[Rfam]
Record summary: Shown here is an 85-nucleotide RNA from Podarcis lilfordi, a member of the family "mir-150 microRNA precursor family". The organism belongs to Podarcis, within Eukaryota. A search with the family's covariance model found it, with a score of 64 bits. The family's consensus secondary structure was predicted with RNAalifold.
Nucleotides: 085
Stems, first nucleotide, its partner, number of pairs: 010076003014072002016069003023061001026060007
Number, partner (000 for none) and nucleotide at each position: 001000u002000c003000u004000c005000g006000c007000c008000c009000c010076c011075c012074u013000c014072u015071c016069u017068c018067c019000c020000a021000a022000c023061c024000c025000u026060u027059g028058u029057a030056c031055c032054a033000g034000u035000g036000c037000c038000a039000a040000a041000u042000g043000u044000g045000u046000c047000c048000c049000c050000c051000c052000a053000c054032u055031g056030g057029u058028a059027c060026a061023g062000a063000g064000g065000a066000u067018g068017g069016a070000a071015g072014g073000g074012a075011g076010g077000g078000u079000g080000g081000u082000g083000c084000a085000g